Notes: A member of the RNA family "chrB-a RNA" from Thalassococcus profundi, 84 nucleotides long.
RNA sequence: CAAAUGGGGCACGCGGAUGCCUCGUGAGGCGCCAGCCCAAAGACCGCAUCCUGUCUUUCCUGCCGAUGGAGGAGGAUGCCGAUG
Numbered sequence: 001c002a003a004a005u006g007g008g009g010c011a012c013g014c015g016g017a018u019g020c021c022u023c024g025u026g027a028g029g030c031g032c033c034a035g036c037c038c039a040a041a042g043a044c045c046g047c048a049u050c051c052u053g054u055c056u057u058u059c060c061u062g063c064c065g066a067u068g069g070a071g072g073a074g075g076a077u078g079c080c081g082a083u084g
Stems, first nucleotide, its partner, number of pairs: 005024006046079006

Rfam 15.1 lists 347 matches to the family in 339 species. Lineage of the source: Bacteria > Pseudomonadati > Rhodobacterales > Roseobacteraceae > Thalassococcus.